[Rfam]
Rfam assigns this 75-nucleotide sequence from Halicephalobus sp. NKZ332 to the family "SmY spliceosomal RNA". The base pairs follow the family's consensus structure, which is taken from published work. The source organism's lineage runs through Eukaryota, Protostomia, Ecdysozoa, Rhabditida and Halicephalobus. It scores 41 bits against the family's covariance model. On this family, see MacMorris et al., RNA 2007: "A novel family of C. elegans snRNPs contains proteins associated with trans-splicing".
RNA sequence: UAUCUCUUUUUCUAUAUCGCAGGGUCUCUCAUGAGUCCUGGCGGAAAAUUUUUGGAGGCUCUUCUUAGAAGAGCU
Dot-bracket structure: .....................(((.(((....))).)))..................(((((((...))))))).